[Rfam]
RNA sequence: CUUCCACCAAACCCUAUCUCCACCUCCACGUGGUGACCGCUGGGAGCCCUUUCGUACCGAAAAGCUGCAGACGAAGAAGG
Numbered sequence: 001c002u003u004c005c006a007c008c009a010a011a012c013c014c015u016a017u018c019u020c021c022a023c024c025u026c027c028a029c030g031u032g033g034u035g036a037c038c039g040c041u042g043g044g045a046g047c048c049c050u051u052u053c054g055u056a057c058c059g060a061a062a063a064g065c066u067g068c069a070g071a072c073g074a075a076g077a078a079g080g
Stems, first nucleotide, its partner, number of pairs: 013080003017076001019074002022034003046066001048064001050062005
Dot-bracket structure: ............(((.(.((.(((.......)))...........(.(.(((((...))))).).)......)).).)))
A member of the RNA family "drz-agam-1 ribozyme" from Hermetia illucens, 80 nucleotides long. The literature on the family includes a 2009 paper in Science by Webb et al., "Widespread occurrence of self-cleaving ribozymes".